The family of this 106-nucleotide RNA sequence from Rhynchospora breviuscula is "Small nucleolar RNA snoR99". By type it is an H/ACA-box small nucleolar RNA. Lineage of the source: Eukaryota > Magnoliopsida > Petrosaviidae > Cyperaceae > Rhynchospora. Its family is annotated with nucleolus and RNA processing in the Gene Ontology. The family has 9 seed sequences and 733 matches in Rfam 15.1.
[Rfam]
RNA sequence: GUACCAAGUGGGAUGAAUUGGUCCCAAAUAGUUGAUCUCCCAUCUACUUCACUUUGUCAGCUAUUAUAUACCAACUUUUAGCUGAUCAUUAAUGGAUGGGAUAUUC
Dot-bracket structure: ......................................((((((...........((((((((...............))))))))........))))))......
Numbered sequence: 001g002u003a004c005c006a007a008g009u010g011g012g013a014u015g016a017a018u019u020g021g022u023c024c025c026a027a028a029u030a031g032u033u034g035a036u037c038u039c040c041c042a043u044c045u046a047c048u049u050c051a052c053u054u055u056g057u058c059a060g061c062u063a064u065u066a067u068a069u070a071c072c073a074a075c076u077u078u079u080a081g082c083u084g085a086u087c088a089u090u091a092a093u094g095g096a097u098g099g100g101a102u103a104u105u106c
Stems, first nucleotide, its partner, number of pairs: 039100006056086008